[Rfam]
The record is a 94-nucleotide sequence from Salmonella enterica, which matches "ES056 sRNA" in Rfam. Rfam describes the family as follows. Differentially expressed under several chemical stress and fermentation conditions. On this family, see Rau et al., BMC Genomics 2015: "Differential expression of small RNAs under chemical stress and fed-batch fermentation in E. coli".

RNA sequence: AGUUAAAAGUAUUUUCGUAAAUAUUUUUCUCUUUCUGGAUAAUGGGCUAUUUCAACCCACAGCAGUGCAACAUCUGUCAGUACUUCUGGUGCCU
Numbered sequence: 001a002g003u004u005a006a007a008a009g010u011a012u013u014u015u016c017g018u019a020a021a022u023a024u025u026u027u028u029c030u031c032u033u034u035c036u037g038g039a040u041a042a043u044g045g046g047c048u049a050u051u052u053c054a055a056c057c058c059a060c061a062g063c064a065g066u067g068c069a070a071c072a073u074c075u076g077u078c079a080g081u082a083c084u085u086c087u088g089g090u091g092c093c094u
Base pairs, nucleotide, nucleotide: 006052007051008050011043012042013041015039016038018037019036021034056091058089060088061087062086064084065083066082067081068080070077071076
About this RNA
The family's RNA type in Rfam is small RNA. Rfam links the family to the GO term fermentation. It scores 51 bits against the family's covariance model.